[Rfam]
RNA sequence: UUUGAGGUGAAUUGAUUAUGUUUGAAUACACUCACUUAAGUGAUUUUUAUGAGUUGAUGUUGUUUGGAUAG
Number, nucleotide and partner (000 for none) at each position: 001u000002u000003u000004g000005a000006g000007g000008u000009g000010a000011a058012u057013u056014g055015a054016u053017u052018a000019u000020g050021u049022u000023u000024g046025a045026a044027u043028a000029c042030a041031c040032u039033c000034a000035c000036u000037u000038a000039a032040g031041u030042g029043a027044u026045u025046u024047u000048u000049a021050u020051g000052a017053g016054u015055u014056g013057a012058u011059g000060u000061u000062g000063u000064u000065u000066g000067g000068a000069u000070a000071g000